Description
The record is an 83-nucleotide sequence from Populus deltoides, which matches "MIR480 microRNA precursor family" in Rfam.
[Rfam]
RNA sequence: UAAUCUUUCUAGGAUAGAUCCUCAUCUAGUUAUGUUAAACCCACAUUGUGAGAACUAUUAUGUGAACAAUAAUUUUUUAAAAU
Numbered sequence: 001u002a003a004u005c006u007u008u009c010u011a012g013g014a015u016a017g018a019u020c021c022u023c024a025u026c027u028a029g030u031u032a033u034g035u036u037a038a039a040c041c042c043a044c045a046u047u048g049u050g051a052g053a054a055c056u057a058u059u060a061u062g063u064g065a066a067c068a069a070u071a072a073u074u075u076u077u078u079a080a081a082a083u
Stems, first nucleotide, its partner, number of pairs: 006082002008079001012075001014073002019068001023062003027057005